[Rfam]
Nucleotides: 236
Stems, first nucleotide, its partner, number of pairs: 012034005019025001020203001022201002036090001038088002042085002044081002046078002048073005054067005123230001124228001126227006144221006150177003155171004183215001184213008193204001
Number, partner (000 for none) and nucleotide at each position: 001000u002000a003000a004000g005000u006000c007000c008000c009000g010000u011000c012034c013033g014032g015031g016030g017000a018000g019025u020203u021000g022201u023200c024000c025019g026000u027000u028000c029000a030016c031015c032014c033013c034012g035000g036090u037000a038088g039087c040000u041000c042085a043084a044081g045080g046078g047077a048073g049072c050071g051070g052069c053000g054067u055066c056065u057064u058063g059000g060000u061000a062000a063058c064057a065056a066055g067054g068000g069052g070051u071050c072049g073048u074000a075000a076000g077047u078046u079000c080045c081044c082000a083000a084043u085042u086000g087039g088038c089000a090036a091000a092000g093000c094000a095000g096000c097000a098000g099000g100000c101000c102000g103000u104000a105000a106000c107000g108000c109000a110000a111000g112000u113000g114000a115000a116000c117000c118000u119000a120000g121000a122000c123230g124228u125000a126227g127226c128225c129224u130223c131222g132000u133000u134000a135000a136000a137000u138000u139000c140000u141000u142000c143000u144221g145220a146219a147218g148217a149216u150177g151176c152175c153000g154000a155171c156170c157169c158168g159000g160000u161000g162000g163000a164000c165000a166000g167000a168158c169157g170156g171155g172000g173000a174000a175152g176151g177150c178000c179000g180000a181000c182000g183215u184213c185212a186211c187210a188209g189208a190207u191206u192000c193204u194000g195000a196000u197000a198000a199000c200023g201022g202000a203020a204193a205000c206191g207190g208189u209188c210187u211186g212185u213184g214000u215183a216149a217148u218147c219146u220145u221144c222131c223130g224129g225128g226127g227126u228124a229000g230123c231000a232000g233000g234000g235000g236000c
The family of this 236-nucleotide RNA from Trichloromonas acetexigens is "Group II catalytic intron D1-D4-6".
A reference for the family is Bonen and Vogel (2001), "The ins and outs of group II introns", Trends Genet.
The organism belongs to Trichloromonas, within Bacteria.
Group II introns are found in rRNA, tRNA and mRNA of organelles in fungi, plants and protists, and also in mRNA in bacteria.